[Rfam]
RNA sequence: AGGGCCGGUGGGGCGCGGGGCCCAACCAGGACUCCGGUCCAAGGACUUCCUGUCCCAGCCCACCUGACCAGGCAUCACCGCCAUCACCCCAUCGGGUGACGCGGGCGCGGGGAGGGGACCGGCCGGGGUAUCGUCGCGGCCACAACCGCAGACAGAGAACGACCCCCGCCGGGAUGGCCGUCCCGGGCGAGGGUCUGAUCACCCAGGAAGAAGAGACCUUCCCG
Numbered sequence: 001a002g003g004g005c006c007g008g009u010g011g012g013g014c015g016c017g018g019g020g021c022c023c024a025a026c027c028a029g030g031a032c033u034c035c036g037g038u039c040c041a042a043g044g045a046c047u048u049c050c051u052g053u054c055c056c057a058g059c060c061c062a063c064c065u066g067a068c069c070a071g072g073c074a075u076c077a078c079c080g081c082c083a084u085c086a087c088c089c090c091a092u093c094g095g096g097u098g099a100c101g102c103g104g105g106c107g108c109g110g111g112g113a114g115g116g117g118a119c120c121g122g123c124c125g126g127g128g129u130a131u132c133g134u135c136g137c138g139g140c141c142a143c144a145a146c147c148g149c150a151g152a153c154a155g156a157g158a159a160c161g162a163c164c165c166c167c168g169c170c171g172g173g174a175u176g177g178c179c180g181u182c183c184c185g186g187g188c189g190a191g192g193g194u195c196u197g198a199u200c201a202c203c204c205a206g207g208a209a210g211a212a213g214a215g216a217c218c219u220u221c222c223c224g
Base pairs, nucleotide, nucleotide: 007203008202009201010200012068014066015065084099085098086097087096088095089094161195162194163193164192165191167189168188169187171184172183173182174181206222207221208220209219210218
Background
This 224-nucleotide RNA sequence from Streptomyces sp. DJ belongs to the Rfam family "Streptomyces sRNA 4677". It scores 59 bits against the family's covariance model. Rfam describes the family as follows. Located in the intergenic region between anti-sigma factor SCO4677 gene and a putative regulatory protein gene SCO4676. scr4677 expression requires the SCO4677 activity and scr4677 sRNA itself seem to affect the levels of the SCO4676-associated transcripts.